A member of the RNA family "mir-126 microRNA precursor family" from Ciona savignyi, 74 nucleotides long. The family's consensus secondary structure was predicted with RNAalifold. Lineage of the source: Eukaryota > Opisthokonta > Eumetazoa > Ascidiacea > Ciona. Gene Ontology terms of the family: miRNA-mediated post-transcriptional gene silencing and RISC complex.

Nucleotides: 074
Stems, first nucleotide, its partner, number of pairs: 009066001011064007021054006029046001
Number, partner (000 for none) and nucleotide at each position: 001000c002000g003000a004000u005000g006000c007000u008000g009066c010000c011064u012063u013062g014061u015060u016059a017058c018000c019000u020000a021054c022053g023052g024051u025050a026049c027000c028000a029046g030000g031000u032000a033000g034000a035000a036000a037000g038000u039000a040000a041000g042000u043000c044000a045000u046029c047000u048000c049026g050025u051024a052023c053022c054021g055000u056000g057000a058017g059016u060015a061014a062013u063012a064011a065000a066009g067000c068000a069000u070000u071000c072000u073000c074000g